The family of this 77-nucleotide RNA sequence from Winslowiella iniecta is "tpke11". Taxonomically the source falls in Winslowiella (Bacteria, Gammaproteobacteria, Enterobacterales, Erwiniaceae).
[Rfam]
RNA sequence: CAGGGUAGAGGUAACCCGCACGGGCGUAGGAGUUCUCUCCACGCCCGUGCACGCAUGUUAAGGGCAGGACAACUAAC
Numbered sequence: 001c002a003g004g005g006u007a008g009a010g011g012u013a014a015c016c017c018g019c020a021c022g023g024g025c026g027u028a029g030g031a032g033u034u035c036u037c038u039c040c041a042c043g044c045c046c047g048u049g050c051a052c053g054c055a056u057g058u059u060a061a062g063g064g065c066a067g068g069a070c071a072a073c074u075a076a077c
Base pairs, nucleotide, nucleotide: 003017004016005015018050019049020048021047022046023045024044025043026042029039030038
For this family Rfam cites "Computational identification of noncoding RNAs in E. coli by comparative genomics" (Rivas et al., Curr Biol, 2001).